A member of the RNA family "mir-9256 microRNA precursor family" from Cnephaeus nilssonii, 67 nucleotides long.
Gene Ontology terms of the family: miRNA-mediated post-transcriptional gene silencing and RISC complex.
The match comes from Rfam's covariance-model search (81 bits).
[Rfam]
Nucleotides: 067
Stems, first nucleotide, its partner, number of pairs: 004064014019049010
Number, partner (000 for none) and nucleotide at each position: 001000g002000c003000g004064u005063a006062u007061a008060c009059u010058g011057a012056g013055u014054g015053g016052c017051c018000a019049g020048a021047u022046u023045a024044u025043u026042a027041u028040g029000a030000u031000c032000u033000a034000u035000g036000a037000a038000c039000g040028c041027a042026u043025a044024a045023u046022a047021a048020u049019c050000u051017g052016g053015c054014c055013a056012c057011u058010c059009a060008g061007u062006g063005u064004g065000u066000g067000u
The organism belongs to Cnephaeus, within Eukaryota.